[Rfam]
RNA sequence: GGCAAAUGAUGUUUUUUUCUCACGAUGGUCUGCGGAUGCCACUGGGCGCUGCCGAUAAUGCCAAUGGCUUGGCUGAUGCCAGGAG
Numbered sequence: 001g002g003c004a005a006a007u008g009a010u011g012u013u014u015u016u017u018u019c020u021c022a023c024g025a026u027g028g029u030c031u032g033c034g035g036a037u038g039c040c041a042c043u044g045g046g047c048g049c050u051g052c053c054g055a056u057a058a059u060g061c062c063a064a065u066g067g068c069u070u071g072g073c074u075g076a077u078g079c080c081a082g083g084a085g
Stems, first nucleotide, its partner, number of pairs: 001080004
The record is an 85-nucleotide RNA sequence from Molossus molossus, which matches "Small nucleolar RNA SNORD35" in Rfam.
Its Rfam clan is "SNORD35 clan".
From the family's description: U35 is a C/D box snoRNA located in intron 6 of ribosomal protein L13A and intron 3 of ribosomal protein S11 in humans and at homologous positions in mouse and chicken ribosomal protein genes. U35 guides the methylation of 2'-O-ribose sites in 28S rRNA.
Rfam 15.1 lists 1,842 matches to the family in 634 species.
NCBI's taxonomy places the organism under Eukaryota, Metazoa, Teleostomi, Yangochiroptera, Molossus.
On this family, see Nicoloso et al., J Mol Biol 1996: "Intron-encoded, antisense small nucleolar RNAs: the characterization of nine novel species points to their direct role as guides for the 2'-O-ribose methylation of rRNAs".
Rfam links the family to the GO terms nucleolus and RNA processing.